[Rfam]
PreQ1 (pre queuosine) riboswitch aptamer: a 45-nucleotide RNA from Actinobacillus succinogenes. The pairing is the family consensus, mapped onto this sequence. Its family is annotated with queuosine biosynthetic process in the Gene Ontology. This family is a bacterial riboswitch that binds to the metabolite preQ1, an intermediate in the biosynthesis of the modified nucleoside queuosine from GTP. One example of this riboswitch is located in the leader of the Bacillus subtilis ykvJKLM (queCDEF) operon which encodes four genes necessary for queuosine production. PreQ1 binding to the riboswitch aptamer is thought to induce premature transcription termination within the leader to down-regulate expression of these genes. It is one of the family's seed sequences. For this family Rfam cites "A natural riboswitch scaffold with self-methylation activity" (Flemmich et al., Nat Commun, 2021).
Nucleotides: 045
Stems, first nucleotide, its partner, number of pairs: 006027005016037001
Number, partner (000 for none) and nucleotide at each position: 001000u002000u003000c004000a005000u006027c007026g008025u009024g010023g011000u012000u013000c014000g015000c016037a017000a018000a019000c020000c021000u022000c023010c024009c025008a026007c027006g028000c029000a030000a031000a032000a033000a034000a035000a036000c037016u038000a039000a040000g041000g042000a043000a044000a045000u